Rfam assigns this 102-nucleotide RNA from Methylobacterium nodulans to the family "Glycine riboswitch aptamer". Its family is annotated with glycine biosynthetic process in the Gene Ontology.
RNA sequence: CAGGGCGAUGCGGGAGAGCCCAGCCCGGCCCAUGGGCCGAGUAUGGCGCCGACGGAGCAACCACCCCCGGAAACUCUCAGGCACAAUCACCGUAUCGUUGGA
Number, nucleotide and partner (000 for none) at each position: 001c000002a000003g000004g000005g000006c097007g096008a095009u094010g093011c092012g091013g090014g000015a000016g000017a000018g000019c000020c046021c045022a044023g000024c000025c000026c000027g000028g000029c000030c000031c000032a000033u000034g000035g000036g000037c000038c000039g000040a000041g000042u000043a000044u022045g021046g020047c000048g082049c081050c080051g078052a077053c000054g000055g076056a075057g074058c000059a000060a000061c070062c069063a000064c000065c000066c000067c000068c000069g062070g061071a000072a000073a000074c057075u056076c055077u052078c051079a000080g050081g049082c048083a000084c000085a000086a000087u000088c000089a000090c013091c012092g011093u010094a009095u008096c007097g006098u000099u000100g000101g000102a000
The source organism's lineage runs through Bacteria, Pseudomonadati, Pseudomonadota, Methylobacterium and Methylobacterium nodulans.